[Rfam]
This 137-nucleotide RNA sequence from Hordeum vulgare belongs to the Rfam family "Small nucleolar RNA snoR2/U65". Rfam classes the family as an H/ACA-box small nucleolar RNA. The family's consensus secondary structure was predicted with WAR.

RNA sequence: GGCCUGAUGCCACGUCUCUGGUAGCCAAAGCCUUUACAGGAGAUGCUACAUUUUGCUUACAGAUAUUUUCACAUUUGAUAGGUACCUGUGGCUGUGAUUUAGUCGAUGCACAAAACUGUUUUUUUGCGAUUACAUUU
Numbered sequence: 001g002g003c004c005u006g007a008u009g010c011c012a013c014g015u016c017u018c019u020g021g022u023a024g025c026c027a028a029a030g031c032c033u034u035u036a037c038a039g040g041a042g043a044u045g046c047u048a049c050a051u052u053u054u055g056c057u058u059a060c061a062g063a064u065a066u067u068u069u070c071a072c073a074u075u076u077g078a079u080a081g082g083u084a085c086c087u088g089u090g091g092c093u094g095u096g097a098u099u100u101a102g103u104c105g106a107u108g109c110a111c112a113a114a115a116c117u118g119u120u121u122u123u124u125u126g127c128g129a130u131u132a133c134a135u136u137u
Stems, first nucleotide, its partner, number of pairs: 002056002006052004013045006021037002024031002069129002072126002081117002087112002090109001093106001
Gene Ontology terms of the family: nucleolus and RNA processing.
Lineage of the source: Eukaryota > Euphyllophyta > Mesangiospermae > commelinids > Hordeum vulgare.
Rfam 15.1 lists 908 matches to the family in 230 species.
The match comes from Rfam's covariance-model search (63 bits).